[Rfam]
RNA sequence: CUACAAAGAUGAUGAUGAUGAUGUGAACUCUCUCUUUCUGAGCUUUCAGUGGAGACCACAUUCACUUGAUCCUGAGUAGU
Numbered sequence: 001c002u003a004c005a006a007a008g009a010u011g012a013u014g015a016u017g018a019u020g021a022u023g024u025g026a027a028c029u030c031u032c033u034c035u036u037u038c039u040g041a042g043c044u045u046u047c048a049g050u051g052g053a054g055a056c057c058a059c060a061u062u063c064a065c066u067u068g069a070u071c072c073u074g075a076g077u078a079g080u
Stems, first nucleotide, its partner, number of pairs: 001079004
The record is an 80-nucleotide sequence from Microcaecilia unicolor, which matches "Small nucleolar RNA SNORD26" in Rfam. Lineage of the source: Eukaryota > Opisthokonta > Chordata > Teleostomi > Microcaecilia. Its Rfam clan is "SNORD26 clan". A search with the family's covariance model found it, with a score of 56 bits.